[Rfam]
RNA sequence: CAAGCACCUCGUUAGGUGAGGCUACCAUACGGAUACAGGCCACUGACCCCAAACGUCGAAAGACGCCCAGGGUCAGGACAGCUCUUCCCGGCUUAAGGGUUGAGCCCAAGUGGCUUCUAGCUUGGGUUAGCUGGAUACGCAGUGUGGUGCCAAAGCUCUGACGAGAGGGGUGCGGG
Numbered sequence: 001c002a003a004g005c006a007c008c009u010c011g012u013u014a015g016g017u018g019a020g021g022c023u024a025c026c027a028u029a030c031g032g033a034u035a036c037a038g039g040c041c042a043c044u045g046a047c048c049c050c051a052a053a054c055g056u057c058g059a060a061a062g063a064c065g066c067c068c069a070g071g072g073u074c075a076g077g078a079c080a081g082c083u084c085u086u087c088c089c090g091g092c093u094u095a096a097g098g099g100u101u102g103a104g105c106c107c108a109a110g111u112g113g114c115u116u117c118u119a120g121c122u123u124g125g126g127u128u129a130g131c132u133g134g135a136u137a138c139g140c141a142g143u144g145u146g147g148u149g150c151c152a153a154a155g156c157u158c159u160g161a162c163g164a165g166a167g168g169g170g171u172g173c174g175g176g
Stems, first nucleotide, its partner, number of pairs: 005172006011162002013096001015157003020151003025147006032140001039114005045074005054065004081105004087099003116135006

The record is a 176-nucleotide RNA sequence from Mycobacterium sherrisii, which matches "M-box riboswitch aptamer (ykoK leader)" in Rfam.
From the family's description: M-box riboswitch, also know as ykoK leader is described as a metaloregulatory RNA that sense divalent metals and function as a genetic control element of genes related to divalent metal transport in bacteria. It was first reported upstream of the B.subtilis ykoK gene and genes with related functions in other bacteria.
It scores 149 bits against the family's covariance model.